[Rfam]
RNA: mir-30 microRNA precursor family
Organism: Menidia menidia
RNA sequence: UGAGGUGCUGUAAACAUCCUUGACUGGAAGCUGGGGUUCACAAAGCGAGAGCUUUCAGUCGGAUGUUUGCAGCAUCUUU
Numbered sequence: 001u002g003a004g005g006u007g008c009u010g011u012a013a014a015c016a017u018c019c020u021u022g023a024c025u026g027g028a029a030g031c032u033g034g035g036g037u038u039c040a041c042a043a044a045g046c047g048a049g050a051g052c053u054u055u056c057a058g059u060c061g062g063a064u065g066u067u068u069g070c071a072g073c074a075u076c077u078u079u
Stems, first nucleotide, its partner, number of pairs: 002078005008072012023059010